[Rfam]
RNA sequence: ACCGGGCGUUGUGGCGAGCGCCUGUGAGCCAGCUUCUAGGCGGUAGACAAGUGUGGAUGAAGUGAAGGGAGGAGUCCUGUGUGUGUUGCUACCAACGGCGACCGAGCGUCCGCGCCAAGCGCUGCGUCGCUAGGGGCUAACCGACGGAGGUUGGAUGGUGCCGGGCGGAUAAGGAGAGGCGUACGGCUCAGGUCCGCGAGGAAGCAGGCAAAAGCCUCCGCGCGGUGCAGUGGCCGGAUAGCGCUUGUGAGUUGGUGCGCACACACAGCCUCCCUGAUACCUUCAGACCGCUUGUCGU
Numbered sequence: 001a002c003c004g005g006g007c008g009u010u011g012u013g014g015c016g017a018g019c020g021c022c023u024g025u026g027a028g029c030c031a032g033c034u035u036c037u038a039g040g041c042g043g044u045a046g047a048c049a050a051g052u053g054u055g056g057a058u059g060a061a062g063u064g065a066a067g068g069g070a071g072g073a074g075u076c077c078u079g080u081g082u083g084u085g086u087u088g089c090u091a092c093c094a095a096c097g098g099c100g101a102c103c104g105a106g107c108g109u110c111c112g113c114g115c116c117a118a119g120c121g122c123u124g125c126g127u128c129g130c131u132a133g134g135g136g137c138u139a140a141c142c143g144a145c146g147g148a149g150g151u152u153g154g155a156u157g158g159u160g161c162c163g164g165g166c167g168g169a170u171a172a173g174g175a176g177a178g179g180c181g182u183a184c185g186g187c188u189c190a191g192g193u194c195c196g197c198g199a200g201g202a203a204g205c206a207g208g209c210a211a212a213a214g215c216c217u218c219c220g221c222g223c224g225g226u227g228c229a230g231u232g233g234c235c236g237g238a239u240a241g242c243g244c245u246u247g248u249g250a251g252u253u254g255g256u257g258c259g260c261a262c263a264c265a266c267a268g269c270c271u272c273c274c275u276g277a278u279a280c281c282u283u284c285a286g287a288c289c290g291c292u293u294g295u296c297g298u
Stems, first nucleotide, its partner, number of pairs: 001044003004023007028041003046296008058285005066275007077268008087259003092255005103247007110237002114234004119228009128167004133162002136159004141154005176218005186209003193202003

The record is a 298-nucleotide sequence from Caenorhabditis bovis, which matches "Metazoan signal recognition particle RNA" in Rfam. On this family, see Rosenblad et al., RNA Biol 2009: "Kinship in the SRP RNA family". NCBI's taxonomy places the organism under Eukaryota, Metazoa, Rhabditida, Rhabditomorpha, Caenorhabditis. By type it is a non-coding RNA gene.